[Rfam]
Nucleotides: 084
Stems, first nucleotide, its partner, number of pairs: 001084001003082005014031004033071003036067002040065001042063001
Number, partner (000 for none) and nucleotide at each position: 001084c002000a003082c004081u005080c006079u007078g008000g009000a010000a011000a012000g013000c014031a015030g016029u017028c018000g019000a020000c021000g022000c023000g024000c025000g026000u027000c028017g029016g030015c031014u032000c033071a034070c035069c036067g037066a038000c039000g040065g041000u042063g043000c044000a045000a046000g047000u048000c049000c050000g051000c052000g053000a054000g055000g056000a057000c058000g059000g060000a061000a062000u063042c064000u065040c066037u067036c068000a069035g070034g071033u072000c073000c074000g075000u076000g077000a078007c079006a080005g081004a082003g083000c084001g

The family of this 84-nucleotide RNA sequence from Pseudoclavibacter chungangensis is "Glycine riboswitch aptamer". Taxonomically the source falls in Pseudoclavibacter (Bacteria, Actinomycetota, Actinomycetes, Micrococcales). Pairs were carried over by alignment from the consensus structure. A search with the family's covariance model found it, with a score of 33 bits.